[Rfam]
RNA sequence: GAUGGCAAGUUUGAGGCCAUAGCAGAAGUUCUCGCAGCAUGGCCUGUCAGAGUCUAAUGGAUCUGCAAAUUCUGGU
Numbered sequence: 001g002a003u004g005g006c007a008a009g010u011u012u013g014a015g016g017c018c019a020u021a022g023c024a025g026a027a028g029u030u031c032u033c034g035c036a037g038c039a040u041g042g043c044c045u046g047u048c049a050g051a052g053u054c055u056a057a058u059g060g061a062u063c064u065g066c067a068a069a070u071u072c073u074g075g076u
Base pairs, nucleotide, nucleotide: 015044016043017042018041021076023074024073025072026071027070028040029039048065049064050063051062053060054059